[Rfam]
Notes: Rfam assigns this 65-nucleotide sequence from Bacillus sp. m3-13 to the family "Bacillus sRNA ncr1241". Taxonomically the source falls in Bacillus (Bacteria, Bacillota, Bacilli, Caryophanales). The family's RNA type in Rfam is small RNA. For this family Rfam cites "Identification of regulatory RNAs in Bacillus subtilis" (Irnov et al., Nucleic Acids Res, 2010).
RNA sequence: AUCAAGGCUUUCUAGUAUUCCCCCUUUUGUUAGGACCAAAUCCACGUUGGAUUUGGUCCCUUUUU
Numbered sequence: 001a002u003c004a005a006g007g008c009u010u011u012c013u014a015g016u017a018u019u020c021c022c023c024c025u026u027u028u029g030u031u032a033g034g035a036c037c038a039a040a041u042c043c044a045c046g047u048u049g050g051a052u053u054u055g056g057u058c059c060c061u062u063u064u065u
Stems, first nucleotide, its partner, number of pairs: 004026004033059010